[Rfam]
RNA: Metazoan signal recognition particle RNA
Nucleotides: 299
Stems, first nucleotide, its partner, number of pairs: 001045003004023008028042003047297008059286002062283003067276007079268006086261003090257001092256003096252001098250001102249008111237001113236005119229008128167004133162013168174002176219005186211004194203003
Number, partner (000 for none) and nucleotide at each position: 001045g002044c003043u004023g005022g006021g007020c008019a009018c010017a011016g012000u013000g014000g015000c016011u017010u018009g019008u020007g021006u022005c023004u024000g025000u026000c027000a028042u029041c030040c031000a032000a033000g034000u035000g036000u037000c038000u039000g040030g041029g042028a043003g044002g045001c046000u047297g048296a049295g050294g051293c052292u053291a054290g055000u056000g057000g058000g059286c060285u061000g062283c063282u064281u065000g066000a067276g068275c069274c070273c071272a072271g073270g074000a075000g076000c077000u078000c079268u080267a081266g082265g083264c084263u085000u086261c087260a088259g089000u090257g091000u092256g093255c094254u095000a096252u097000g098250u099000u100000g101000a102249g103248c104247a105246a106245g107244u108243g109242u110000c111237c112000a113236c114235a115234c116233u117232g118000g119229g120228g121227u122226c123225a124224g125223u126222a127000u128167u129166g130165g131164c132000a133162u134161g135160g136159a137158g138157a139156c140155u141154c142153u143152g144151a145150g146000g147000g148000a149000g150145c151144u152143u153142g154141g155140a156139g157138u158137c159136u160135c161134c162133a163000g164131g165130u166129u167128g168174c169173u170000u171000a172000a173169a174168g175000a176219g177218g178217g179216g180215u181000g182000a183000a184000c185000c186211g187210g188209c189208c190000c191000a192000g193000g194203c195202u196201g197000g198000a199000a200000a201196c202195a203194g204000a205000g206000c207000a208189g209188g210187u211186c212000a213000a214000a215180g216179c217178u218177c219176c220000c221000u222126u223125g224124u225123u226122g227121a228120c229119u230000g231000g232117u233116a234115g235114u236113g237111g238000a239000a240000c241000a242109g243108c244107a245106c246105u247104u248103g249102u250098a251000a252096a253000c254094a255093g256092c257090u258000u259088c260087u261086g262000u263084g264083g265082c266081c267080u268079a269000a270073c271072c272071u273070g274069g275068g276067c277000a278000a279000g280000a281064g282063a283062g284000g285060g286059g287000g288000g289000c290054c291053u292052a293051g294050c295049c296048u297047u298000u299000u